[Rfam]
RNA: Bacterial small subunit ribosomal RNA, nucleotides 508 to 860
RNA sequence: GGCGUAAAGGGCGCGUAGGCGGGCUGAUAAGUCAGGGGUGAAAUCCCGAGGCUCAACCUCGGAACUGCCUUUGAUACUGUUGGUCUUGAGUUCGAGAGAGGUAAGUGGAACUGCGAGUGUAGAGGUGAAAUUCGUAGAUAUUCGCAAGAACACCAGUGGCGAAGGCGGCUUACUGGCUCGAUACUGACGCUGAGGCGCGAAAGCGUGGGGAGCAAACAGGAUUAGAUACCCUGGUAGUCCACGCCUUAAACGAUGGAUGCUAGCCGUUGGUCAGCUUGCUGGUCAGUGGCGCCGUUAACACAUUAAGCAUCCCGCCUGGGGAGUACGGUCGCAAGAUUAAAACUCAAAGGAAU
Numbered sequence: 001g002g003c004g005u006a007a008a009g010g011g012c013g014c015g016u017a018g019g020c021g022g023g024c025u026g027a028u029a030a031g032u033c034a035g036g037g038g039u040g041a042a043a044u045c046c047c048g049a050g051g052c053u054c055a056a057c058c059u060c061g062g063a064a065c066u067g068c069c070u071u072u073g074a075u076a077c078u079g080u081u082g083g084u085c086u087u088g089a090g091u092u093c094g095a096g097a098g099a100g101g102u103a104a105g106u107g108g109a110a111c112u113g114c115g116a117g118u119g120u121a122g123a124g125g126u127g128a129a130a131u132u133c134g135u136a137g138a139u140a141u142u143c144g145c146a147a148g149a150a151c152a153c154c155a156g157u158g159g160c161g162a163a164g165g166c167g168g169c170u171u172a173c174u175g176g177c178u179c180g181a182u183a184c185u186g187a188c189g190c191u192g193a194g195g196c197g198c199g200a201a202a203g204c205g206u207g208g209g210g211a212g213c214a215a216a217c218a219g220g221a222u223u224a225g226a227u228a229c230c231c232u233g234g235u236a237g238u239c240c241a242c243g244c245c246u247u248a249a250a251c252g253a254u255g256g257a258u259g260c261u262a263g264c265c266g267u268u269g270g271u272c273a274g275c276u277u278g279c280u281g282g283u284c285a286g287u288g289g290c291g292c293c294g295u296u297a298a299c300a301c302a303u304u305a306a307g308c309a310u311c312c313c314g315c316c317u318g319g320g321g322a323g324u325a326c327g328g329u330c331g332c333a334a335g336a337u338u339a340a341a342a343c344u345c346a347a348a349g350g351a352a353u
Base pairs, nucleotide, nucleotide: 001316002315003314009313011198012197013196014195016192018191019190020189022085023084024083025082026081027080028079030078031077032074033073034072035071036070037069038068039067040066046062047061048060049059050058051057089185090184091183092181093180094179095178096177100174101173102172103171104170105169106168107151112146113145114144115143116142117141118140122133123132124131159166160165203244204243205242206241207240208239212238213237217233218232219231220230255312256311257310258309259308260307263290264289265288266287267286268285269284270283271282272281273280274279294301295300318345319344320343327338328337329336330335